[Rfam]
RNA sequence: UGAAACAGUGAUGAGCCCUACAGACCUGUAACGAUUUGCGGUGAUGAUCGCAAUCCUUGUGAACAUCUAAGGGACUGAGUUCUU
Numbered sequence: 001u002g003a004a005a006c007a008g009u010g011a012u013g014a015g016c017c018c019u020a021c022a023g024a025c026c027u028g029u030a031a032c033g034a035u036u037u038g039c040g041g042u043g044a045u046g047a048u049c050g051c052a053a054u055c056c057u058u059g060u061g062a063a064c065a066u067c068u069a070a071g072g073g074a075c076u077g078a079g080u081u082c083u084u
Base pairs, nucleotide, nucleotide: 002083004081005080006079
Shown here is an 84-nucleotide RNA from Manihot esculenta, a member of the family "Small nucleolar RNA SNORD25". The base pairs follow the family's consensus structure, which was predicted with PFOLD. A search with the family's covariance model found it, with a score of 64 bits. Its family is annotated with nucleolus and RNA processing in the Gene Ontology. Rfam classes the family as a C/D-box small nucleolar RNA.